[Rfam]
The family of this 94-nucleotide RNA from Galbitalea soli is "Glycine riboswitch aptamer".
It scores 62 bits against the family's covariance model.
The pairing is the family consensus, mapped onto this sequence.
Taxonomically the source falls in Galbitalea (Bacteria, Actinomycetota, Actinomycetes, Micrococcales).
RNA sequence: GCACGCGAUGCGGGAGAGCAUCCCCCCAAUGGGAAUGCACCGAAGGAGCAAGCCUCCCCGCCAAUCUCUCAGGUUUAUGUACCGCAUCGAACUG
Numbered sequence: 001g002c003a004c005g006c007g008a009u010g011c012g013g014g015a016g017a018g019c020a021u022c023c024c025c026c027c028a029a030u031g032g033g034a035a036u037g038c039a040c041c042g043a044a045g046g047a048g049c050a051a052g053c054c055u056c057c058c059c060g061c062c063a064a065u066c067u068c069u070c071a072g073g074u075u076u077a078u079g080u081a082c083c084g085c086a087u088c089g090a091a092c093u094g
Stems, first nucleotide, its partner, number of pairs: 006089008019037003039074003042070002046068003052061002